[Rfam]
RNA sequence: AUGAUUAUGACCGCCAUUCCAGUACUGGCGGGCUGACUUUCGGCCACUGAAAAACCCGCCUCCGAGGCGGGUUUU
Numbered sequence: 001a002u003g004a005u006u007a008u009g010a011c012c013g014c015c016a017u018u019c020c021a022g023u024a025c026u027g028g029c030g031g032g033c034u035g036a037c038u039u040u041c042g043g044c045c046a047c048u049g050a051a052a053a054a055c056c057c058g059c060c061u062c063c064g065a066g067g068c069g070g071g072u073u074u075u
Stems, first nucleotide, its partner, number of pairs: 011031006052074009
Dot-bracket structure: ..........((((((.........))))))....................(((((((((.....))))))))).